[Rfam]
RNA sequence: UCGUGCUAGAUGGGGAGAUGGCGGUGCCCUGUAACCCGCAAUCCGCCUUAGCGGGGUUGAAUUCCCAUUGAAGGUGCGCUUCAUGUAAGGUCUGCCUUAUGCAAGUGGUGUUGACAACUGGGUCCUGCGCAACAGGAACCCAUGAACCUGGUCAGGUCCGGAAGGAAGCAGCCAUAAGUGGAUCAUUCUGUGUGCCGCAGGGUAGCCUGGUUCGAGCUAACUACAUGAGUAACGCUUGGUUGGUCGUAUCGACAAUGGGUGCACGG
Numbered sequence: 001u002c003g004u005g006c007u008a009g010a011u012g013g014g015g016a017g018a019u020g021g022c023g024g025u026g027c028c029c030u031g032u033a034a035c036c037c038g039c040a041a042u043c044c045g046c047c048u049u050a051g052c053g054g055g056g057u058u059g060a061a062u063u064c065c066c067a068u069u070g071a072a073g074g075u076g077c078g079c080u081u082c083a084u085g086u087a088a089g090g091u092c093u094g095c096c097u098u099a100u101g102c103a104a105g106u107g108g109u110g111u112u113g114a115c116a117a118c119u120g121g122g123u124c125c126u127g128c129g130c131a132a133c134a135g136g137a138a139c140c141c142a143u144g145a146a147c148c149u150g151g152u153c154a155g156g157u158c159c160g161g162a163a164g165g166a167a168g169c170a171g172c173c174a175u176a177a178g179u180g181g182a183u184c185a186u187u188c189u190g191u192g193u194g195c196c197g198c199a200g201g202g203u204a205g206c207c208u209g210g211u212u213c214g215a216g217c218u219a220a221c222u223a224c225a226u227g228a229g230u231a232a233c234g235c236u237u238g239g240u241u242g243g244u245c246g247u248a249u250c251g252a253c254a255a256u257g258g259g260u261g262c263a264c265g266g
Stems, first nucleotide, its partner, number of pairs: 001266006009058003012030004017025001019023001035055005064259007073250005081243003086238004093231002097228005105221002107218003116212008124201006130192002133190005138183001140181004149174004157166003

Rfam assigns this 266-nucleotide sequence from Ammoniphilus sp. CFH 90114 to the family "Bacterial large signal recognition particle RNA". About the family: The signal recognition particle (SRP) is a universally conserved ribonucleoprotein involved in the co-translational targeting of proteins to membranes. By type it is a non-coding RNA gene.